The family of this 31-nucleotide sequence is "L31-Firmicutes ribosomal protein leader".
RNA sequence: CUAUGACAUUUAUUUGUCAUGGCGAAAGGAG
Dot-bracket structure: ((((((((......)))))))).........
Its Rfam clan is "Ribosomal Protein L31 Leader clan".